[Rfam]
RNA sequence: AAGACCGCACUCUAAAGGAUCAUUUCUUUAGUCUGCAUCCCGUCUUUGUUGCUCAACAAAGACAAGUCUCCCAUGCAGGUUGAUGAGCUGUAACCUCGUUGCUUGAGCGCGAAGUGGAGGCGUGUUCUAAUGCGAGGCUGUCAAAAGCCAUGCAGCCGCCUCGUUAAUGAACGCCUUCUCGACGUUUUGCAACCGAGCUCACGUUGUGCGCGCCGAGGAGAGGCAAUGGGGUAGUCUUACUGCAG
Numbered sequence: 001a002a003g004a005c006c007g008c009a010c011u012c013u014a015a016a017g018g019a020u021c022a023u024u025u026c027u028u029u030a031g032u033c034u035g036c037a038u039c040c041c042g043u044c045u046u047u048g049u050u051g052c053u054c055a056a057c058a059a060a061g062a063c064a065a066g067u068c069u070c071c072c073a074u075g076c077a078g079g080u081u082g083a084u085g086a087g088c089u090g091u092a093a094c095c096u097c098g099u100u101g102c103u104u105g106a107g108c109g110c111g112a113a114g115u116g117g118a119g120g121c122g123u124g125u126u127c128u129a130a131u132g133c134g135a136g137g138c139u140g141u142c143a144a145a146a147g148c149c150a151u152g153c154a155g156c157c158g159c160c161u162c163g164u165u166a167a168u169g170a171a172c173g174c175c176u177u178c179u180c181g182a183c184g185u186u187u188u189g190c191a192a193c194c195g196a197g198c199u200c201a202c203g204u205u206g207u208g209c210g211c212g213c214c215g216a217g218g219a220g221a222g223g224c225a226a227u228g229g230g231g232u233a234g235u236c237u238u239a240c241u242g243c244a245g
Stems, first nucleotide, its partner, number of pairs: 001038001003036001005035001009032003016027004042063009074244005093232005099226006107174003117162003122156001175220004180215001